[Rfam]
RNA: DUF3800-V RNA
RNA sequence: UGGAGCUGGCAAUAAUACCUUUUGAGGUGCUCGAGUGUUCCCUCCGCGGAUGUGGAGACUUAAGCUCGGGAGCCCAUCUCAUUAGACGCCGCUCUA
Numbered sequence: 001u002g003g004a005g006c007u008g009g010c011a012a013u014a015a016u017a018c019c020u021u022u023u024g025a026g027g028u029g030c031u032c033g034a035g036u037g038u039u040c041c042c043u044c045c046g047c048g049g050a051u052g053u054g055g056a057g058a059c060u061u062a063a064g065c066u067c068g069g070g071a072g073c074c075c076a077u078c079u080c081a082u083u084a085g086a087c088g089c090c091g092c093u094c095u096a
Stems, first nucleotide, its partner, number of pairs: 001096006009089002023081007030070007042057005